[Rfam]
RNA sequence: UCACACCGUGCGGGAGAGUCCUCGGCCAGGCCGGGGCGCCGAAGGGGCAACACUCCCCAGAACCUCUCAGGCGCAAGGGACCGCUCGGGACAG
Numbered sequence: 001u002c003a004c005a006c007c008g009u010g011c012g013g014g015a016g017a018g019u020c021c022u023c024g025g026c027c028a029g030g031c032c033g034g035g036g037c038g039c040c041g042a043a044g045g046g047g048c049a050a051c052a053c054u055c056c057c058c059a060g061a062a063c064c065u066c067u068c069a070g071g072c073g074c075a076a077g078g079g080a081c082c083g084c085u086c087g088g089g090a091c092a093g
Base pairs, nucleotide, nucleotide: 006088007087008086010084011083012082013081020036021035022034023033038072039071040070041068042067045066046065047064